[Rfam]
RNA sequence: GAUGAAACCCGUAUCGUUUUUCUUCGCAUUCUUUUUUACCUUCUUUACCUUCCCCUGAUCAGGGAGGCGAUUCGUCGUGUAAGAAGUCAUGCGAAGACGAACAAUAAAGCCUCCCCCCGGGAGGCUUUUUUUUU
Numbered sequence: 001g002a003u004g005a006a007a008c009c010c011g012u013a014u015c016g017u018u019u020u021u022c023u024u025c026g027c028a029u030u031c032u033u034u035u036u037u038a039c040c041u042u043c044u045u046u047a048c049c050u051u052c053c054c055c056u057g058a059u060c061a062g063g064g065a066g067g068c069g070a071u072u073c074g075u076c077g078u079g080u081a082a083g084a085a086g087u088c089a090u091g092c093g094a095a096g097a098c099g100a101a102c103a104a105u106a107a108a109g110c111c112u113c114c115c116c117c118c119g120g121g122a123g124g125c126u127u128u129u130u131u132u133u134u
Stems, first nucleotide, its partner, number of pairs: 016102004021097009032086003036082004051065004066076004106128010
Dot-bracket structure: ...............((((.(((((((((..(((.((((...........((((.......))))((((...))))..)))).)))..))))))))).))))...((((((((((...))))))))))......
RNA: Phenylalanine leader peptide
Organism: Erwinia tasmaniensis